RNA sequence: AAGGCUCUCGUUGAACAAUCCCACCGGUGAGUGUAUACAUUCGGUCUCCUGCGUGGACCUGAGAGAGCCAAGA
Numbered sequence: 001a002a003g004g005c006u007c008u009c010g011u012u013g014a015a016c017a018a019u020c021c022c023a024c025c026g027g028u029g030a031g032u033g034u035a036u037a038c039a040u041u042c043g044g045u046c047u048c049c050u051g052c053g054u055g056g057a058c059c060u061g062a063g064a065g066a067g068c069c070a071a072g073a
Base pairs, nucleotide, nucleotide: 003069004068005067007065008064009063021056022055023054024053025051026050029042030041031040032039033038

A member of the RNA family "Trypanosomatid snoRNA TB11Cs3H1" from Trypanosoma cruzi, 73 nucleotides long. The family has 4 seed sequences and 30 matches in Rfam 15.1. The base pairs follow the family's consensus structure, which was predicted with WAR.